Shown here is a 104-nucleotide sequence, a member of the family "eL15-Euryarchaeota ribosomal protein leader". The family's RNA type in Rfam is cis-regulatory leader. Rfam's curators put it in the seed alignment. A reference for the family is Eckert and Weinberg (2020), "Discovery of 20 novel ribosomal leader candidates in bacteria and archaea", BMC Microbiol.
[Rfam]
RNA sequence: CUCGCCGCCGGACCGAGGCGUCGGGUCGACGCGGAGUCAACCCCGUCGACGCCGAGGGUCCGGGACGAGACGAAAUGUGGCCGCAUGCGCGGCUGAAUCGCAAC
Numbered sequence: 001c002u003c004g005c006c007g008c009c010g011g012a013c014c015g016a017g018g019c020g021u022c023g024g025g026u027c028g029a030c031g032c033g034g035a036g037u038c039a040a041c042c043c044c045g046u047c048g049a050c051g052c053c054g055a056g057g058g059u060c061c062g063g064g065a066c067g068a069g070a071c072g073a074a075a076u077g078u079g080g081c082c083g084c085a086u087g088c089g090c091g092g093c094u095g096a097a098u099c100g101c102a103a104c
Stems, first nucleotide, its partner, number of pairs: 001069004071100003079094005
Pairs were carried over by alignment from the consensus structure, which is taken from published work.